[Rfam]
RNA sequence: AAGGUACAACAGACAAUAGCUUGAAUCUUCAAGAGGAAAGUCUGGGCUGCAGUGAAGUAUGGUUCCAUUUAACGAAUGGCUAGGGUAACCUAAGGGACAGUGCAACAGAGAGAAGACCGCCAGUUUAUAUUGGUAAGGCUGAAAGGGUGGAGUAAGAGCCCACCAGCACUUUAAGUAAUUUUAGUGGCUAUGUAAACCCAACCAGCAGCAAGAAGAGAUUGGUAAUAAACUUCACAUUUAUGCUCUUCGCAAGAUUGCUUAAGUAAUUUAGCAACUAGAUAAAUUAUUGUCAAAAACAAAAUCCAGCUUACCGUUGUGCCUUAUUA
Numbered sequence: 001a002a003g004g005u006a007c008a009a010c011a012g013a014c015a016a017u018a019g020c021u022u023g024a025a026u027c028u029u030c031a032a033g034a035g036g037a038a039a040g041u042c043u044g045g046g047c048u049g050c051a052g053u054g055a056a057g058u059a060u061g062g063u064u065c066c067a068u069u070u071a072a073c074g075a076a077u078g079g080c081u082a083g084g085g086u087a088a089c090c091u092a093a094g095g096g097a098c099a100g101u102g103c104a105a106c107a108g109a110g111a112g113a114a115g116a117c118c119g120c121c122a123g124u125u126u127a128u129a130u131u132g133g134u135a136a137g138g139c140u141g142a143a144a145g146g147g148u149g150g151a152g153u154a155a156g157a158g159c160c161c162a163c164c165a166g167c168a169c170u171u172u173a174a175g176u177a178a179u180u181u182u183a184g185u186g187g188c189u190a191u192g193u194a195a196a197c198c199c200a201a202c203c204a205g206c207a208g209c210a211a212g213a214a215g216a217g218a219u220u221g222g223u224a225a226u227a228a229a230c231u232u233c234a235c236a237u238u239u240a241u242g243c244u245c246u247u248c249g250c251a252a253g254a255u256u257g258c259u260u261a262a263g264u265a266a267u268u269u270a271g272c273a274a275c276u277a278g279a280u281a282a283a284u285u286a287u288u289g290u291c292a293a294a295a296a297c298a299a300a301a302u303c304c305a306g307c308u309u310a311c312c313g314u315u316g317u318g319c320c321u322u323a324u325u326a
Stems, first nucleotide, its partner, number of pairs: 001322010012291007020033005038309003042306005047208004057233001060204005065079005080094001081092004095199002100197002102193003117138002119134006146164005166188001167186004173180002212248004226240004255274005261268002

The record is a 326-nucleotide sequence from Arcobacter sp. CECT 8983, which matches "Bacterial RNase P class A" in Rfam.
It scores 251 bits against the family's covariance model.